Rfam assigns this 76-nucleotide RNA sequence from Actinomadura rubteroloni to the family "6C RNA". The literature on the family includes a 2007 paper in Nucleic Acids Res by Weinberg et al., "Identification of 22 candidate structured RNAs in bacteria using the CMfinder comparative genomics pipeline".
RNA sequence: AACGGUCCGGUUCUACCCCCCCGGAGCCGGACCGCACGGCGACCCCCGCUCUCCCCCCCGGCGGGGGUCGCCCAUU
Dot-bracket structure: ..(((((((((((..........)))))))))))...(((((((((((((.........)))))))))))))....